RNA sequence: GGUGGUUCUCGGGUGACACAUCCCGGACUCGGGCUCCCUCCUCUCUAGUUCCGGGUGCGUCACCCGAGAACCACA
Dot-bracket structure: .((.(((((((((((((.(((((.(((.(.(((..........))).).)))))))).))))))))))))).)).
Description
Shown here is a 75-nucleotide sequence from Myotis brandtii, a member of the family "mir-9223 microRNA precursor family". Pairs were carried over by alignment from the consensus structure, which was predicted with RNAalifold. The family has 9 seed sequences and 14,641 matches in Rfam 15.1. Taxonomically the source falls in Myotis (Eukaryota, Craniata, Teleostomi, Mammalia). The match comes from Rfam's covariance-model search (82 bits).